[Rfam]
RNA sequence: ACGAUCGAUACCUAUUUCACCGAUCGUUAAUAUCGAUCGUUAUGCUAAUAAUAACUCAUGUUAGCAACGUGCGCAGAUACACACAGUCAUGAGAUUCAGGGAACAACAGAGCCACACGUCAGAAACUUCCGUCAGCCGGACCUCCGGCACUGUAACCCUUUACCUGCCGGUAUCCACAUCUGUGGAUACCGGCUUUUUUAUUCACC
Dot-bracket structure: ..................(.((((((.......)))))).)..................(((.((.......)).)))....................(((.................................(((((....))))).......))).......((((((((((((....)))))))))))).............